[Rfam]
RNA sequence: CGUGUCUCGACACGCCGGUAUGUGGUCGCGAGACUGAACCGCCGA
Numbered sequence: 001c002g003u004g005u006c007u008c009g010a011c012a013c014g015c016c017g018g019u020a021u022g023u024g025g026u027c028g029c030g031a032g033a034c035u036g037a038a039c040c041g042c043c044g045a
Base pairs, nucleotide, nucleotide: 001014002013003012004011005010016041017040018039024035025034026033027032